[Rfam]
RNA sequence: GGAGGAGGAUCGUCCCCGGUGGGGCGUCCGGUCUGCAAAACCGGGUGGGGCUGCCCUGCGGUCCCAGGUGGGUUCGACUCCCACCCUCUUCC
Numbered sequence: 001g002g003a004g005g006a007g008g009a010u011c012g013u014c015c016c017c018g019g020u021g022g023g024g025c026g027u028c029c030g031g032u033c034u035g036c037a038a039a040a041c042c043g044g045g046u047g048g049g050g051c052u053g054c055c056c057u058g059c060g061g062u063c064c065c066a067g068g069u070g071g072g073u074u075c076g077a078c079u080c081c082c083a084c085c086c087u088c089u090u091c092c
Stems, first nucleotide, its partner, number of pairs: 001092008011026006027045006047065005069083004
Notes: Rfam assigns this 92-nucleotide sequence from Piscinibacter aquaticus to the family "Selenocysteine transfer RNA". It scores 76 bits against the family's covariance model. A reference for the family is Mizutani and Goto (2000), "Eukaryotic selenocysteine tRNA has the 9/4 secondary structure", FEBS Lett.